[Rfam]
RNA sequence: UGUGAUGGACCCUGCUCUGUAGUGCACUUACAACAGGUGAACAGUAAACUAUGUUCAAUAAAA
Numbered sequence: 001u002g003u004g005a006u007g008g009a010c011c012c013u014g015c016u017c018u019g020u021a022g023u024g025c026a027c028u029u030a031c032a033a034c035a036g037g038u039g040a041a042c043a044g045u046a047a048a049c050u051a052u053g054u055u056c057a058a059u060a061a062a063a
Base pairs, nucleotide, nucleotide: 011037012036013035014034018032019031021028022027038057039056040055041054042053043052

About this RNA: A member of the RNA family "freshwater-1 RNA", 63 nucleotides long. By type it is a small RNA. Rfam's curators put it in the seed alignment.